[Rfam]
Nucleotides: 063
Base pairs, nucleotide, nucleotide: 001063002062003061004060005059014051015050016049017048019046020045021044022043023042029037030036031035
Number, partner (000 for none) and nucleotide at each position: 001063c002062a003061c004060g005059c006000u007000c008000c009000a010000u011000g012000a013000c014051g015050g016049g017048a018000a019046c020045c021044g022043c023042c024000g025000a026000a027000a028000c029037g030036c031035c032000g033000c034000c035031g036030g037029c038000a039000c040000c041000g042023g043022g044021c045020g046019g047000g048017u049016c050015c051014c052000a053000g054000a055000g056000c057000c058000c059005g060004c061003g062002u063001g

The record is a 63-nucleotide RNA from Cyanoderma ruficeps, which matches "Selenocysteine insertion sequence 1" in Rfam. It is annotated as a cis-regulatory element. The family's consensus secondary structure is taken from published work. The match comes from Rfam's covariance-model search (38 bits). The incorporation of selenocysteine into a protein sequence is directed by an in-frame UGA codon (usually a stop codon) within the coding region of the mRNA. Selenoprotein mRNAs contain a conserved secondary structure in the 3' UTR that is required for the distinction of UGA stop from UGA selenocysteine.